RNA: Small nucleolar RNA SNORA32
Nucleotides: 121
Base pairs, nucleotide, nucleotide: 003053004052005051006050007049010046011045012044028039029038067114068113069112070111074107075106076105077104085100086099087098
Number, partner (000 for none) and nucleotide at each position: 001000u002000g003053g004052u005051c006050a007049u008000u009000a010046u011045u012044a013000u014000g015000g016000c017000u018000u019000u020000u021000a022000g023000a024000a025000u026000c027000a028039a029038g030000u031000u032000u033000c034000u035000c036000g037000u038029u039028u040000g041000c042000u043000g044012u045011g046010g047000a048000c049007a050006u051005g052004a053003c054000c055000a056000u057000a058000a059000a060000a061000a062000c063000a064000u065000u066000u067114c068113u069112c070111a071000c072000u073000a074107g075106g076105u077104u078000u079000u080000c081000u082000g083000u084000c085100u086099g087098u088000u089000a090000c091000c092000u093000u094000g095000c096000u097000a098087g099086c100085a101000a102000u103000c104077a105076a106075c107074c108000u109000g110000u111070u112069g113068g114067g115000a116000a117000c118000a119000u120000u121000g